[Rfam]
RNA sequence: UCACCAUCCAAACACGCCUUACCGAGACUAAACAGCGUGUUUAAAAAACAGUCUCUCAUACCCGACCUGGAGGGUAGGUUGGGAAUAUUUUACCGA
Dot-bracket structure: ............(((((.(....[[[[[.....))))))...........]]]]].....(((((((.........))))))).............